[Rfam]
RNA sequence: CUCUUAUCAAGAGAGGUGGAGGGAAAAGGGCCCUAUGAAACCCGGCAACCGGCAACAGAAUUGCUAAGGUGCCAAUUCCUGCAGUGAUAAUCUGCAAGAUAAGAG
Numbered sequence: 001c002u003c004u005u006a007u008c009a010a011g012a013g014a015g016g017u018g019g020a021g022g023g024a025a026a027a028g029g030g031c032c033c034u035a036u037g038a039a040a041c042c043c044g045g046c047a048a049c050c051g052g053c054a055a056c057a058g059a060a061u062u063g064c065u066a067a068g069g070u071g072c073c074a075a076u077u078c079c080u081g082c083a084g085u086g087a088u089a090a091u092c093u094g095c096a097a098g099a100u101a102a103g104a105g
Stems, first nucleotide, its partner, number of pairs: 001105008013043001015042003021033003028080003044073004049069002051065004077097001082094003
RNA: SAM riboswitch aptamer (S box leader)